Small Cajal body specific RNA 3: a 135-nucleotide RNA from Opisthocomus hoazin. It scores 95 bits against the family's covariance model. Rfam describes the family as follows. scaRNAs are a specific class of small nuclear RNAs which localise to the Cajal bodies and guide the modification of RNA polymerase II transcribed spliceosomal RNAs U1, U2, U4, U5 and U12. Rfam 15.1 lists 642 matches to the family in 535 species. The literature on the family includes a 2002 paper in EMBO J by Darzacq et al., "Cajal body-specific small nuclear RNAs: a novel class of 2'-O-methylation and pseudouridylation guide RNAs". Its Rfam clan is "SCARNA3 clan".
[Rfam]
RNA sequence: GCUGGGACCAGUUGGGACCAGUCGUGGGCAGAAGAAAGAUGUUUUGUCCACUGUUGCAGACUUCCUAGAGUGAAGUGGAGGUCUCUGUCUGCUUUGGGAGAGCCAACCAAACUGGAUCGUUCCCCUCCAUACACG
Numbered sequence: 001g002c003u004g005g006g007a008c009c010a011g012u013u014g015g016g017a018c019c020a021g022u023c024g025u026g027g028g029c030a031g032a033a034g035a036a037a038g039a040u041g042u043u044u045u046g047u048c049c050a051c052u053g054u055u056g057c058a059g060a061c062u063u064c065c066u067a068g069a070g071u072g073a074a075g076u077g078g079a080g081g082u083c084u085c086u087g088u089c090u091g092c093u094u095u096g097g098g099a100g101a102g103c104c105a106a107c108c109a110a111a112c113u114g115g116a117u118c119g120u121u122c123c124c125c126u127c128c129a130u131a132c133a134c135g
Stems, first nucleotide, its partner, number of pairs: 004065003009059001011057002024051006034043001077128005085119001087117003091113001093111005